A member of the RNA family "Alpha operon ribosome binding site" from Colwellia psychrerythraea, 106 nucleotides long. The base pairs follow the family's consensus structure, which is taken from published work.
RNA sequence: AAAGAGAAUGGUUGGGUAUCCUAACGGGCUUUCCAACCAAAGUAAUUUUAAUUAUAAAUAGGAGAUGUGAUUAGUGGCCCGUAUCGCUGGCAUUAACAUCCCUGAU
Numbered sequence: 001a002a003a004g005a006g007a008a009u010g011g012u013u014g015g016g017u018a019u020c021c022u023a024a025c026g027g028g029c030u031u032u033c034c035a036a037c038c039a040a041a042g043u044a045a046u047u048u049u050a051a052u053u054a055u056a057a058a059u060a061g062g063a064g065a066u067g068u069g070a071u072u073a074g075u076g077g078c079c080c081g082u083a084u085c086g087c088u089g090g091c092a093u094u095a096a097c098a099u100c101c102c103u104g105a106u
Stems, first nucleotide, its partner, number of pairs: 005049005011043003020090002025081004034104002
The sequence is in the family's curated seed alignment. A reference for the family is Schlax et al. (2001), "Translational repression of the Escherichia coli alpha operon mRNA: importance of an mRNA conformational switch and a ternary entrapment complex", J Biol Chem. By type it is a cis-regulatory element. Gene Ontology term of the family: ribosome binding. The bacterial alpha operon ribosome binding site is surrounded by this complex pseudoknotted structure.